Source information
Shown here is a 103-nucleotide sequence from Kalanchoe fedtschenkoi, a member of the family "Small nucleolar RNA Z266". By type it is a C/D-box small nucleolar RNA. Its family is annotated with nucleolus and RNA processing in the Gene Ontology. For this family Rfam cites "The high diversity of snoRNAs in plants: identification and comparative study of 120 snoRNA genes from Oryza sativa" (Chen et al., Nucleic Acids Res, 2003). The source organism's lineage runs through Eukaryota, Embryophyta, Euphyllophyta, Crassulaceae and Kalanchoe. Pairs were carried over by alignment from the consensus structure, which was predicted with PFOLD.

RNA sequence: GUUUGGGAUGAAUGAUGAAUCAAUUAGAUGUGCGAAGGAGGCAUUUGCUUCUUUGUGAGCUUAACCUUUUUGAGGCAUUUAUCAAACUUCUGACGUCCAAUAC
Numbered sequence: 001g002u003u004u005g006g007g008a009u010g011a012a013u014g015a016u017g018a019a020u021c022a023a024u025u026a027g028a029u030g031u032g033c034g035a036a037g038g039a040g041g042c043a044u045u046u047g048c049u050u051c052u053u054u055g056u057g058a059g060c061u062u063a064a065c066c067u068u069u070u071u072g073a074g075g076c077a078u079u080u081a082u083c084a085a086a087c088u089u090c091u092g093a094c095g096u097c098c099a100a101u102a103c
Base pairs, nucleotide, nucleotide: 001103002102004100006098007097008096009095010094